RNA sequence: GUCAGCACCCCGCUCUGAAGAGACGGAGCCUUGUGCGAAGCACACGCUUACGCAAACGAGCCUCUUUCUUUAGGUAGCUGACCAGCCUAAGUCUUACGAGGACUACGUUAUCGGCAAGGGUUAAAGUUCCUACCUUGGGAUGCGUGCCAGUCUCAAGCUCUAGAACCGGGUGGUUAAACAGUUGUACGAGGGGUAAGACAGUGCCAUCUGGAUAGUACCGACCGAUAACAUUGGCUAGGCAAACUUAAC
Dot-bracket structure: (((((((.(.((.((....))..))..)(.((....)).)..................................).))))))..(((.((((((.....)))))..((((((......((((.....((....(((((((([..[[[[.)))))))).....)).(((((((((...((.(((.(((.....))).))).)))))))))))........)))))))))).).)))..]]].]..]....

Background
HNH endonuclease-associated RNA and ORF (HEARO) RNA: a 249-nucleotide RNA from Moorena producens. Rfam classes the family as a non-coding RNA gene. The literature on the family includes a 2009 paper in Nature by Weinberg et al., "Exceptional structured noncoding RNAs revealed by bacterial metagenome analysis".